[Rfam]
RNA sequence: UUGGUGUACUCAGAGGAGGGAGGGCUGAAGGAUGGCUCCUCUAUUUAUAAUACACUCAACAGGAAUCUGGGGUUACUGGGAUGGGGGGCACAAAACUUAUGUCUUCCCUACAAAUUCCCUACAUGC
Numbered sequence: 001u002u003g004g005u006g007u008a009c010u011c012a013g014a015g016g017a018g019g020g021a022g023g024g025c026u027g028a029a030g031g032a033u034g035g036c037u038c039c040u041c042u043a044u045u046u047a048u049a050a051u052a053c054a055c056u057c058a059a060c061a062g063g064a065a066u067c068u069g070g071g072g073u074u075a076c077u078g079g080g081a082u083g084g085g086g087g088g089c090a091c092a093a094a095a096c097u098u099a100u101g102u103c104u105u106c107c108c109u110a111c112a113a114a115u116u117c118c119c120u121a122c123a124u125g126c
Base pairs, nucleotide, nucleotide: 003056004055005054006053007052008051013046014045015044017042018041019040020039022038023036025034070119071118072117082112083111085105086104087103089101090100092098093097

The record is a 126-nucleotide RNA from Otolemur garnettii, which matches "Small nucleolar RNA SNORA11" in Rfam. The family's consensus secondary structure was predicted with RNAalifold. The source organism's lineage runs through Eukaryota, Deuterostomia, Vertebrata, Primates and Otolemur. Rfam's curators write: U107 (SNORA11) is a member of the H/ACA class of snoRNAs that guide the sites of modification of uridines to pseudouridines. This snoRNA was identified by RT-PCR from blood cells and its expression confirmed by Northern blot analysis. There is no predicted target for this guide snRNA. Rfam 15.1 lists 2,014 matches to the family in 202 species.